[Rfam]
RNA sequence: UGGGACCUUCGGGUUGUCGCGGUGUGGCUUGACUGCACCGAGGAAAGUCCGAGCACCAUAGGGUAGUAUGCUGGUUAACGGCCAGGCGGGGGAACCCGACGGCAAGUGCAACAGAGAGUAGACCGCCGAACUCGCGUCUUCGGGCGUGGGUGGUAAGGGUGAAAGGGUGGGGUAAGAGCCCACCAGCACGGGUAGUGAUACACGUGGCUGGGUAAACCCCAUACGGUGCAAGACUAAAUAGGGAAACAGGGCAUCCCAGAGGUGUCGAGAAGUGACCCGCUUCUGGUUUCCGGGUAAGUCGCUUGAGGGGGUCGGUAACGGCCUUCCCAGAUGAAUGACAACCGGCUCGUUUCGGCGAGUUACAGGACUCGGCUUAUAGAAGGUCCCACGUC
Numbered sequence: 001u002g003g004g005a006c007c008u009u010c011g012g013g014u015u016g017u018c019g020c021g022g023u024g025u026g027g028c029u030u031g032a033c034u035g036c037a038c039c040g041a042g043g044a045a046a047g048u049c050c051g052a053g054c055a056c057c058a059u060a061g062g063g064u065a066g067u068a069u070g071c072u073g074g075u076u077a078a079c080g081g082c083c084a085g086g087c088g089g090g091g092g093a094a095c096c097c098g099a100c101g102g103c104a105a106g107u108g109c110a111a112c113a114g115a116g117a118g119u120a121g122a123c124c125g126c127c128g129a130a131c132u133c134g135c136g137u138c139u140u141c142g143g144g145c146g147u148g149g150g151u152g153g154u155a156a157g158g159g160u161g162a163a164a165g166g167g168u169g170g171g172g173u174a175a176g177a178g179c180c181c182a183c184c185a186g187c188a189c190g191g192g193u194a195g196u197g198a199u200a201c202a203c204g205u206g207g208c209u210g211g212g213u214a215a216a217c218c219c220c221a222u223a224c225g226g227u228g229c230a231a232g233a234c235u236a237a238a239u240a241g242g243g244a245a246a247c248a249g250g251g252c253a254u255c256c257c258a259g260a261g262g263u264g265u266c267g268a269g270a271a272g273u274g275a276c277c278c279g280c281u282u283c284u285g286g287u288u289u290c291c292g293g294g295u296a297a298g299u300c301g302c303u304u305g306a307g308g309g310g311g312u313c314g315g316u317a318a319c320g321g322c323c324u325u326c327c328c329a330g331a332u333g334a335a336u337g338a339c340a341a342c343c344g345g346c347u348c349g350u351u352u353c354g355g356c357g358a359g360u361u362a363c364a365g366g367a368c369u370c371g372g373c374u375u376a377u378a379g380a381a382g383g384u385c386c387c388a389c390g391u392c
Stems, first nucleotide, its partner, number of pairs: 001388010011377001012343007020040008045375003049372005054228004061278004066224005071085005086100001087098004101219002106217002108213002123158002125154003130151009166184006186208001187206004192201003232300004242291006269283005307326008
RNA: Bacterial RNase P class A